About this RNA
Rfam assigns this 83-nucleotide sequence to the family "nrdJ RNA". It is annotated as a small RNA.
[Rfam]
RNA sequence: ACCAGUUGAAGGCGCCCUCCGGGGUGCCCUCGACACCAGACACACAUCCGUGCCAUGGGAACAACGUGGCACUUCAGGGCGUU
Numbered sequence: 001a002c003c004a005g006u007u008g009a010a011g012g013c014g015c016c017c018u019c020c021g022g023g024g025u026g027c028c029c030u031c032g033a034c035a036c037c038a039g040a041c042a043c044a045c046a047u048c049c050g051u052g053c054c055a056u057g058g059g060a061a062c063a064a065c066g067u068g069g070c071a072c073u074u075c076a077g078g079g080c081g082u083u
Stems, first nucleotide, its partner, number of pairs: 005034005011028006050072008